Notes
This 247-nucleotide sequence from Aspergillus luchuensis belongs to the Rfam family "Small nucleolar RNA snR191". A search with the family's covariance model found it, with a score of 57 bits. A reference for the family is Badis et al. (2003), "A snoRNA that guides the two most conserved pseudouridine modifications within rRNA confers a growth advantage in yeast", RNA. Gene Ontology terms of the family: RNA processing and nucleolus.
RNA sequence: UGCCAUCGCUAAGUCAAGGCGCCUCCUGCGACUUCAUGUCGCGCUAUUCGCUAUGGGAGACUGUCUGUUACAGCUUUGGCAGAUUGACGCUGGUCCGCGCCGACCUUCUUUCUGAAGCUAGGCUGAUUGGUUUUCGUUUUGAAAGCCGAUCGUUAAGGACCGAGCUGUGUUCUGUUUUUGAGUUGAGUCCUGCUUCCGCUCUUGAAGUGGCAUCAUAGCAGGUCUCUUAGUAACAUUUCACACAUCC
Numbered sequence: 001u002g003c004c005a006u007c008g009c010u011a012a013g014u015c016a017a018g019g020c021g022c023c024u025c026c027u028g029c030g031a032c033u034u035c036a037u038g039u040c041g042c043g044c045u046a047u048u049c050g051c052u053a054u055g056g057g058a059g060a061c062u063g064u065c066u067g068u069u070a071c072a073g074c075u076u077u078g079g080c081a082g083a084u085u086g087a088c089g090c091u092g093g094u095c096c097g098c099g100c101c102g103a104c105c106u107u108c109u110u111u112c113u114g115a116a117g118c119u120a121g122g123c124u125g126a127u128u129g130g131u132u133u134u135c136g137u138u139u140u141g142a143a144a145g146c147c148g149a150u151c152g153u154u155a156a157g158g159a160c161c162g163a164g165c166u167g168u169g170u171u172c173u174g175u176u177u178u179u180g181a182g183u184u185g186a187g188u189c190c191u192g193c194u195u196c197c198g199c200u201c202u203u204g205a206a207g208u209g210g211c212a213u214c215a216u217a218g219c220a221g222g223u224c225u226c227u228u229a230g231u232a233a234c235a236u237u238u239c240a241c242a243c244a245u246c247c
Stems, first nucleotide, its partner, number of pairs: 003079003017066005023059004028042005090167001092165001094163002099123003103119001105117004125151012169241002174236002177233001185226003191220004196210003200206001